Notes:
This 131-nucleotide sequence from Rickettsia canadensis belongs to the Rfam family "Rickettsia rpsL leader". The source organism's lineage runs through Bacteria, Pseudomonadati, Alphaproteobacteria, Rickettsiaceae and Rickettsia canadensis. The sequence is in the family's curated seed alignment.
[Rfam]
RNA sequence: AACAUACUUGCUUUUAUAGAAAAAGUAAUUAUAAUUCAAGUUUAGUAUAAUUUACAAAUGCUUAUAAUUUGUAUUUAGAAAUGAUUUAAAACUAAAGGGUGGAGUGUUUUUCACCCUUUAGUUAUCGUAUA
Numbered sequence: 001a002a003c004a005u006a007c008u009u010g011c012u013u014u015u016a017u018a019g020a021a022a023a024a025g026u027a028a029u030u031a032u033a034a035u036u037c038a039a040g041u042u043u044a045g046u047a048u049a050a051u052u053u054a055c056a057a058a059u060g061c062u063u064a065u066a067a068u069u070u071g072u073a074u075u076u077a078g079a080a081a082u083g084a085u086u087u088a089a090a091a092c093u094a095a096a097g098g099g100u101g102g103a104g105u106g107u108u109u110u111u112c113a114c115c116c117u118u119u120a121g122u123u124a125u126c127g128u129a130u131a
Base pairs, nucleotide, nucleotide: 004032005031006030008028009027010026011025012024013023014022015021053073054072055071056070057069058068059067093120094119095118096117097116098115100113101112102111103110104109